[Rfam]
This 201-nucleotide sequence from Medicago truncatula belongs to the Rfam family "MIR2619 microRNA precursor family".
RNA sequence: AAACAGCCCCUUAUGUAUUGGAUCUUUGGCAGUUUUGGCCCCCAAGGCCACUUUUGACUUAGUCUUCGUUGACGUGGCACCCACAUCCCUUAAUUGAGGUGCCACGUGUCGACCAUUGUGGGUGCCAUGUUAGCGAAGACGAAGUCAAAAGUGGCAUUGGGGGCUAAAACUGUCAAAGAUCCAAUACAUAGGGGACUGUUU
Numbered sequence: 001a002a003a004c005a006g007c008c009c010c011u012u013a014u015g016u017a018u019u020g021g022a023u024c025u026u027u028g029g030c031a032g033u034u035u036u037g038g039c040c041c042c043c044a045a046g047g048c049c050a051c052u053u054u055u056g057a058c059u060u061a062g063u064c065u066u067c068g069u070u071g072a073c074g075u076g077g078c079a080c081c082c083a084c085a086u087c088c089c090u091u092a093a094u095u096g097a098g099g100u101g102c103c104a105c106g107u108g109u110c111g112a113c114c115a116u117u118g119u120g121g122g123u124g125c126c127a128u129g130u131u132a133g134c135g136a137a138g139a140c141g142a143a144g145u146c147a148a149a150a151g152u153g154g155c156a157u158u159g160g161g162g163g164c165u166a167a168a169a170c171u172g173u174c175a176a177a178g179a180u181c182c183a184a185u186a187c188a189u190a191g192g193g194g195a196c197u198g199u200u201u
Base pairs, nucleotide, nucleotide: 001201002200004198005197006196008194012190013189014188015187016186017185018184019183020182021181022180023179024178025177026176027175028174029173030172031171032170033169034168035167036166037165038164039163040162041161042160043159044158045157072130073129075127076126077125078124079123080122081121082120083119084118085117

It scores 173 bits against the family's covariance model.
Rfam links the family to the GO terms miRNA-mediated post-transcriptional gene silencing and RISC complex.